The record is a 287-nucleotide sequence from Enemella evansiae, which matches "5' ureB small RNA" in Rfam. It scores 101 bits against the family's covariance model. The family's consensus secondary structure was predicted with mfold. The literature on the family includes a 2013 paper in J Bacteriol by Wen et al., "Helicobacter pylori 5'ureB-sRNA, a cis-encoded antisense small RNA, negatively regulates ureAB expression by transcription termination". Rfam links the family to the GO term negative regulation of gene expression. Taxonomically the source falls in Enemella (Bacteria, Actinomycetes, Propionibacteriales, Propionibacteriaceae).
[Rfam]
RNA sequence: CGGUGAACACCUGAUCGGUGGAGAUGAAGUGGAUGUGUGCGUCGACACCGCCGGCGGUGAGGAUCCGGUUCUCCCCGGCGAUGAUCUCGGUGGCGGCACCGAUGACGAUGUCCACACCGUCGGUGAUGUCGGGAUUGCCGGCCCGACCGAUCGCGUCGAUGCGACCGUCGCGCAGGGCCACGUCGGCCUUGUAGAUCCCUGUGUGGUCGAGGAUCAGGGCGUUGGUGAUGACGGUGUCGGGUACGCCGUCGGCCCGGGUGAGCCGACCGUUCAUGCCCAUGCCUUCG
Numbered sequence: 001c002g003g004u005g006a007a008c009a010c011c012u013g014a015u016c017g018g019u020g021g022a023g024a025u026g027a028a029g030u031g032g033a034u035g036u037g038u039g040c041g042u043c044g045a046c047a048c049c050g051c052c053g054g055c056g057g058u059g060a061g062g063a064u065c066c067g068g069u070u071c072u073c074c075c076c077g078g079c080g081a082u083g084a085u086c087u088c089g090g091u092g093g094c095g096g097c098a099c100c101g102a103u104g105a106c107g108a109u110g111u112c113c114a115c116a117c118c119g120u121c122g123g124u125g126a127u128g129u130c131g132g133g134a135u136u137g138c139c140g141g142c143c144c145g146a147c148c149g150a151u152c153g154c155g156u157c158g159a160u161g162c163g164a165c166c167g168u169c170g171c172g173c174a175g176g177g178c179c180a181c182g183u184c185g186g187c188c189u190u191g192u193a194g195a196u197c198c199c200u201g202u203g204u205g206g207u208c209g210a211g212g213a214u215c216a217g218g219g220c221g222u223u224g225g226u227g228a229u230g231a232c233g234g235u236g237u238c239g240g241g242u243a244c245g246c247c248g249u250c251g252g253c254c255c256g257g258g259u260g261a262g263c264c265g266a267c268c269g270u271u272c273a274u275g276c277c278c279a280u281g282c283c284u285u286c287g
Stems, first nucleotide, its partner, number of pairs: 001287003005284001008281002012158004018076001020074004030053003034050002037048003057069002077148002083142001085140001090138004095130003100125002103122004107117001164270002167267001170263002173260002178258001186220006200209002223256003230250002234246003
Dot-bracket structure: (((.(..((..((((..(.((((......(((.((.(((......))))))))...((.........)).)))).)((....(.(....((((.(((..((.(((((.........).)))).))..)))....)))).).)....))......)))).....((.(..((.((...(.......((((((........((......)).....))))))..(((....((..(((.......)))..))...))).))).))...).)).........))..))))